[Rfam]
Notes
Rfam assigns this 51-nucleotide RNA to the family "Streptococcus sRNA SpF59 (ldcC RNA)". The family's consensus secondary structure was predicted with mfold. The family's RNA type in Rfam is small RNA.
RNA sequence: GGACCACCCUUUCGGGUUUGAGGCCAUACGGACAGCCGGGUCCAAUGCCGA
Numbered sequence: 001g002g003a004c005c006a007c008c009c010u011u012u013c014g015g016g017u018u019u020g021a022g023g024c025c026a027u028a029c030g031g032a033c034a035g036c037c038g039g040g041u042c043c044a045a046u047g048c049c050g051a
Stems, first nucleotide, its partner, number of pairs: 001043005006017004